[Rfam]
The record is a 100-nucleotide sequence from Caenorhabditis remanei, which matches "mir-36 microRNA precursor family" in Rfam. Rfam links the family to the GO terms miRNA-mediated post-transcriptional gene silencing and RISC complex. The source organism's lineage runs through Eukaryota, Metazoa, Rhabditina, Rhabditomorpha and Caenorhabditis. Its Rfam clan is "mir-36 clan". The family has 46 seed sequences and 199 matches in Rfam 15.1. For this family Rfam cites "Patterns of flanking sequence conservation and a characteristic upstream motif for microRNA gene identification" (Ohler et al., RNA, 2004). Pairs were carried over by alignment from the consensus structure, which was predicted with WAR.
RNA sequence: UCCUCCUGGUCGGAUCGGACCUCCACUGGUUUUUGCUGCGGUAAUAUUUCUCAGAAUCAAUAUCACCGGGUAAAAAUCAGGGCAGGUCCGAUUCCAGCCA
Numbered sequence: 001u002c003c004u005c006c007u008g009g010u011c012g013g014a015u016c017g018g019a020c021c022u023c024c025a026c027u028g029g030u031u032u033u034u035g036c037u038g039c040g041g042u043a044a045u046a047u048u049u050c051u052c053a054g055a056a057u058c059a060a061u062a063u064c065a066c067c068g069g070g071u072a073a074a075a076a077u078c079a080g081g082g083c084a085g086g087u088c089c090g091a092u093u094c095c096a097g098c099c100a
Base pairs, nucleotide, nucleotide: 016090017089018088019087020086021085022084024082026080027079028078029077030076031075032074033073034072035071036070037069039068041066042065044063045062046061